[Rfam]
RNA sequence: GGGCGAGGACGACCUCCCCCGUCGUGGGAUCACUCGCCGGGACGACCCGG
Numbered sequence: 001g002g003g004c005g006a007g008g009a010c011g012a013c014c015u016c017c018c019c020c021g022u023c024g025u026g027g028g029a030u031c032a033c034u035c036g037c038c039g040g041g042a043c044g045a046c047c048c049g050g
Stems, first nucleotide, its partner, number of pairs: 001020003005016004037050005
Rfam assigns this 50-nucleotide RNA from Roseovarius spongiae to the family "Guanidine-II riboswitch aptamer (mini-ykkC)". Rfam links the family to the GO term regulation of gene expression. About the family: Simpler in structure and has fewer highly conserved nucleotide positions than the ykkC-yxkD leader. Pairs were carried over by alignment from the consensus structure, which is taken from published work.